[Rfam]
RNA: PrrF RNA
Organism: Pseudomonas rhizosphaerae
RNA sequence: UUGACUCUUAAAUGAGAAUCGUUAUGAUUAUCACAUCCAGUCGCGAGACUGGUGAUCUCUGAAAGGCCCUUGGUUCGGACUUUCAGAUGUCUCCUCAUCAGGCUAAUCACGGUUAUUGACCCGGCACUUUGCCGGGUCUUUUUUUU
Numbered sequence: 001u002u003g004a005c006u007c008u009u010a011a012a013u014g015a016g017a018a019u020c021g022u023u024a025u026g027a028u029u030a031u032c033a034c035a036u037c038c039a040g041u042c043g044c045g046a047g048a049c050u051g052g053u054g055a056u057c058u059c060u061g062a063a064a065g066g067c068c069c070u071u072g073g074u075u076c077g078g079a080c081u082u083u084c085a086g087a088u089g090u091c092u093c094c095u096c097a098u099c100a101g102g103c104u105a106a107u108c109a110c111g112g113u114u115a116u117u118g119a120c121c122c123g124g125c126a127c128u129u130u131g132c133c134g135g136g137u138c139u140u141u142u143u144u145u146u
Stems, first nucleotide, its partner, number of pairs: 034054002037052006059086007067077001093102003118138008